[Rfam]
A member of the RNA family "mir-433 microRNA precursor family" from Mus musculus, 93 nucleotides long.
Rfam links the family to the GO terms cellular response to leukemia inhibitory factor, cellular response to lipopolysaccharide and miRNA-mediated post-transcriptional gene silencing.
The family has 12 seed sequences and 130 matches in Rfam 15.1.
The base pairs follow the family's consensus structure, which was predicted with RNAalifold.

RNA sequence: CCGGGGAGAAGUACGGUGAGCCUGUCAUUAUUCAGAGAGGCUAGAUCCUCUGUGUUGAGAAGGAUCAUGAUGGGCUCCUCGGUGUUCUCCAGG
Numbered sequence: 001c002c003g004g005g006g007a008g009a010a011g012u013a014c015g016g017u018g019a020g021c022c023u024g025u026c027a028u029u030a031u032u033c034a035g036a037g038a039g040g041c042u043a044g045a046u047c048c049u050c051u052g053u054g055u056u057g058a059g060a061a062g063g064a065u066c067a068u069g070a071u072g073g074g075c076u077c078c079u080c081g082g083u084g085u086u087c088u089c090c091a092g093g
Base pairs, nucleotide, nucleotide: 001093002092005090006089007088008087009086010085014081015080016079018077019076020075021074022073023072024071025070026069027068028067030065031064032063033054034053037050038049039048040047
Dot-bracket structure: ((..((((((...(((.(((((((((((.(((((..((((......))))..))........))).))))))))))).)))...)))))).))